[Rfam]
RNA sequence: AGUUUGCCAUGAUGAAAUGCAUGUUAAGUCCGUGUUUCAGCUGAUCAGUGUGAUUAAACACAUGCUCUGGGCAGACU
Numbered sequence: 001a002g003u004u005u006g007c008c009a010u011g012a013u014g015a016a017a018u019g020c021a022u023g024u025u026a027a028g029u030c031c032g033u034g035u036u037u038c039a040g041c042u043g044a045u046c047a048g049u050g051u052g053a054u055u056a057a058a059c060a061c062a063u064g065c066u067c068u069g070g071g072c073a074g075a076c077u
Stems, first nucleotide, its partner, number of pairs: 001077007
Shown here is a 77-nucleotide RNA sequence from Microcebus murinus, a member of the family "Small nucleolar RNA SNORD126". Lineage of the source: Eukaryota > Amniota > Mammalia > Strepsirrhini > Microcebus.